[Rfam]
RNA sequence: GGAGCCAUAGGGAGGGAUUCCAAUCCAACCUAAGGAAAAGAAACAUGCUAUGGGAGUCUUCGAGAUUGGCGACCGUCCUAAUGACUUA
Numbered sequence: 001g002g003a004g005c006c007a008u009a010g011g012g013a014g015g016g017a018u019u020c021c022a023a024u025c026c027a028a029c030c031u032a033a034g035g036a037a038a039a040g041a042a043a044c045a046u047g048c049u050a051u052g053g054g055a056g057u058c059u060u061c062g063a064g065a066u067u068g069g070c071g072a073c074c075g076u077c078c079u080a081a082u083g084a085c086u087u088a
Base pairs, nucleotide, nucleotide: 002087003086004085006083007082008081010079011078012077013076015074016073018071020069021068022067023066024065025064029062038060039059040058041057044054046052047051
The record is an 88-nucleotide sequence from Equus caballus, which matches "mir-9014 microRNA precursor family" in Rfam. Pairs were carried over by alignment from the consensus structure, which was predicted with RNAalifold.